[Rfam]
RNA sequence: AUUCGUUGGAUGGGUAUGAGGCGUUGGAUCGAUUUCACUCAAUCCAAGCUCCACAUUCAUCAGGGGUUCGU
Dot-bracket structure: ...(.((.(((((((.((.(((.((((((.((......)).))))))))).)).))))))).)).).....
Numbered sequence: 001a002u003u004c005g006u007u008g009g010a011u012g013g014g015u016a017u018g019a020g021g022c023g024u025u026g027g028a029u030c031g032a033u034u035u036c037a038c039u040c041a042a043u044c045c046a047a048g049c050u051c052c053a054c055a056u057u058c059a060u061c062a063g064g065g066g067u068u069c070g071u
Stems, first nucleotide, its partner, number of pairs: 004066001006064002009061007017053002020050003024047006031040002
About this RNA
Rfam assigns this 71-nucleotide RNA sequence from Nicotiana tabacum to the family "MIR6151 microRNA precursor family". Its family is annotated with miRNA-mediated post-transcriptional gene silencing and RISC complex in the Gene Ontology. The base pairs follow the family's consensus structure, which was predicted with RNAalifold.